[Rfam]
RNA sequence: GGAUUCCUUCGGGGCAGGGUGAAAUUCCCUACCGGCGGUGAUGAGGAUCAAGUCCUCUCAGUCCGUGACCCGUUGUUUUAGGAUAACGGUGGAUUUGGUGAAACUCCAAAGCCGACAGUGAAAGUCUGGAUGGGAGAAGGAACAU
Number, nucleotide and partner (000 for none) at each position: 001g000002g000003a000004u142005u141006c140007c139008u138009u137010c136011g000012g000013g000014g000015c000016a000017g029018g028019g027020u000021g000022a000023a000024a000025u000026u000027c019028c018029c017030u000031a125032c124033c114034g113035g066036c065037g064038g063039u000040g000041a000042u000043g000044a000045g000046g000047a000048u000049c000050a000051a000052g000053u000054c000055c000056u000057c000058u000059c000060a000061g112062u111063c038064c037065g036066u035067g000068a000069c000070c089071c088072g000073u000074u000075g000076u000077u000078u000079u000080a000081g000082g000083a000084u000085a000086a000087c000088g071089g070090u000091g000092g000093a000094u110095u109096u108097g107098g106099u000100g000101a000102a000103a000104c000105u000106c098107c097108a096109a095110a094111g062112c061113c034114g033115a000116c128117a127118g126119u000120g000121a000122a000123a000124g032125u031126c118127u117128g116129g000130a000131u000132g000133g000134g000135a000136g010137a009138a008139g007140g006141a005142a004143c000144a000145u000